This 134-nucleotide sequence from Formicarius rufipectus belongs to the Rfam family "Small nucleolar RNA SNORA17".
Rfam links the family to the GO terms nucleolus and RNA processing.
The family's RNA type in Rfam is H/ACA-box small nucleolar RNA.
For this family Rfam cites "Mapping to nucleotide resolution of pseudouridine residues in large subunit ribosomal RNAs from representative eukaryotes, prokaryotes, archaebacteria, mitochondria and chloroplasts" (Ofengand and Bakin, J Mol Biol, 1997).
A search with the family's covariance model found it, with a score of 50 bits.
The family has 53 seed sequences and 5,784 matches in Rfam 15.1.
About the family: snoRNA ACA 17 belongs to the H/ACA family of snoRNAs and is predicted to guide pseudouridylation of the 28S rRNA at positions U4659 and U4598. It shares the same host gene together with ACA43. NB This family has a high threshold value to exclude a large number of closely related sequences that do not appear to have conserved H and ACA boxes, and may be pseudogenes.
RNA sequence: UAUGUCACUAAGUUUUUGAAGGCGUGGCUGCAGUGCCACGUUUGUGUCAUUCGGUGGCAGAGAGGAAAAGGCGAGGUCUUCCCCUGGUGCUCUGACCCAUGUGGGCUCCCAGGAUUGCUCAACAACCUGACAUU
Numbered sequence: 001u002a003u004g005u006c007a008c009u010a011a012g013u014u015u016u017u018g019a020a021g022g023c024g025u026g027g028c029u030g031c032a033g034u035g036c037c038a039c040g041u042u043u044g045u046g047u048c049a050u051u052c053g054g055u056g057g058c059a060g061a062g063a064g065g066a067a068a069a070g071g072c073g074a075g076g077u078c079u080u081c082c083c084c085u086g087g088u089g090c091u092c093u094g095a096c097c098c099a100u101g102u103g104g105g106c107u108c109c110c111a112g113g114a115u116u117g118c119u120c121a122a123c124a125a126c127c128u129g130a131c132a133u134u
Stems, first nucleotide, its partner, number of pairs: 003059004008053001010051002012048001014046001018045001020043002023040006069128003073120003080114003086110002089106004